The record is a 370-nucleotide sequence from Trichechus manatus, which matches "Bag-1 internal ribosome entry site (IRES)" in Rfam. Gene Ontology term of the family: ribosome binding. For this family Rfam cites "The p36 isoform of BAG-1 is translated by internal ribosome entry following heat shock" (Coldwell et al., Oncogene, 2001). Rfam describes the family as follows. This family represents the bag-1 internal ribosome entry site (IRES). When expressed the BAG-1 protein is known to enhance the anti-apoptotic properties of Bcl-2. Although bag-1 translation usually occurs via a cap-dependent mechanism it has been found to contain a IRES in its 5' UTR. Translation via the IRES has been found to be common following heat shock when cap-dependent scanning is compromised.

RNA sequence: UGGGCGGUCAGCAAGCGCUGGCCUGGCGGAACGCGGCGGCGCGCGGAGACCGCGAGGCCACGGGGAGCGGCCGGGUCACCGGACGCGCGCCCUUCGGCCGGGCGGGGAGCCGCACCAGGCCGAAACCCCGGCACACCACAAGCCGCCCCGGUCUCAGCGUCCGUCCGUCCCGAGCAAGGCCAGCGGACAUGACCGAUCCACCAGGGGCCCCGCCGCCGGCGCUCGCAGGCCGCGGAUGAAGAAGAAAAUACAGUUCCGCGUUGCCCGGAGCGAGGAGAUGGCCCAGAGGGAGGAGGUGGCCCGGACCGAGGAGAUGGCCCAGAGCGAGGAGAUGGCCCGGAGCGAGGAGAUGACCCGGAGUGAGGAAGUG
Numbered sequence: 001u002g003g004g005c006g007g008u009c010a011g012c013a014a015g016c017g018c019u020g021g022c023c024u025g026g027c028g029g030a031a032c033g034c035g036g037c038g039g040c041g042c043g044c045g046g047a048g049a050c051c052g053c054g055a056g057g058c059c060a061c062g063g064g065g066a067g068c069g070g071c072c073g074g075g076u077c078a079c080c081g082g083a084c085g086c087g088c089g090c091c092c093u094u095c096g097g098c099c100g101g102g103c104g105g106g107g108a109g110c111c112g113c114a115c116c117a118g119g120c121c122g123a124a125a126c127c128c129c130g131g132c133a134c135a136c137c138a139c140a141a142g143c144c145g146c147c148c149c150g151g152u153c154u155c156a157g158c159g160u161c162c163g164u165c166c167g168u169c170c171c172g173a174g175c176a177a178g179g180c181c182a183g184c185g186g187a188c189a190u191g192a193c194c195g196a197u198c199c200a201c202c203a204g205g206g207g208c209c210c211c212g213c214c215g216c217c218g219g220c221g222c223u224c225g226c227a228g229g230c231c232g233c234g235g236a237u238g239a240a241g242a243a244g245a246a247a248a249u250a251c252a253g254u255u256c257c258g259c260g261u262u263g264c265c266c267g268g269a270g271c272g273a274g275g276a277g278a279u280g281g282c283c284c285a286g287a288g289g290g291a292g293g294a295g296g297u298g299g300c301c302c303g304g305a306c307c308g309a310g311g312a313g314a315u316g317g318c319c320c321a322g323a324g325c326g327a328g329g330a331g332a333u334g335g336c337c338c339g340g341a342g343c344g345a346g347g348a349g350a351u352g353a354c355c356c357g358g359a360g361u362g363a364g365g366a367a368g369u370g
Stems, first nucleotide, its partner, number of pairs: 021103007038093002041090002043053004061082001063080002067076002144352002147349001149347001167188004205224004210219003257272003261268001
Dot-bracket structure: ....................(((((((..........((.((((((...)))).......(.((..((......))..)).)......)).))...)))))))........................................((.(.(.................((((..............))))................((((.(((....))).))))................................(((.(......).)))..........................................................................).).))..................